[Rfam]
RNA: S15-Flavobacteria ribosomal protein leader
RNA sequence: UAAAUUUGCGCCUCGGUAAAUAAUUUACCAUACAUAAUAAUCAUUUAAAUAAUAUUAGCAUG
Numbered sequence: 001u002a003a004a005u006u007u008g009c010g011c012c013u014c015g016g017u018a019a020a021u022a023a024u025u026u027a028c029c030a031u032a033c034a035u036a037a038u039a040a041u042c043a044u045u046u047a048a049a050u051a052a053u054a055u056u057a058g059c060a061u062g
Stems, first nucleotide, its partner, number of pairs: 015029005